[Rfam]
RNA sequence: AAUGGGCAAGAAUGAUGAGACAAUUAGAUGAGUGAGAGGUAUACCUCUUUGAGCAAAACUCACGAUGCUUAUUGAUAUUCUGACUUUAUUGCCCAUA
Numbered sequence: 001a002a003u004g005g006g007c008a009a010g011a012a013u014g015a016u017g018a019g020a021c022a023a024u025u026a027g028a029u030g031a032g033u034g035a036g037a038g039g040u041a042u043a044c045c046u047c048u049u050u051g052a053g054c055a056a057a058a059c060u061c062a063c064g065a066u067g068c069u070u071a072u073u074g075a076u077a078u079u080c081u082g083a084c085u086u087u088a089u090u091g092c093c094c095a096u097a
Stems, first nucleotide, its partner, number of pairs: 002096007009085002
Source information
Shown here is a 97-nucleotide sequence from Olea europaea, a member of the family "Small nucleolar RNA Z266". The family's RNA type in Rfam is C/D-box small nucleolar RNA. A search with the family's covariance model found it, with a score of 44 bits. Pairs were carried over by alignment from the consensus structure, which was predicted with PFOLD. On this family, see Chen et al., Nucleic Acids Res 2003: "The high diversity of snoRNAs in plants: identification and comparative study of 120 snoRNA genes from Oryza sativa". Its family is annotated with RNA processing and nucleolus in the Gene Ontology.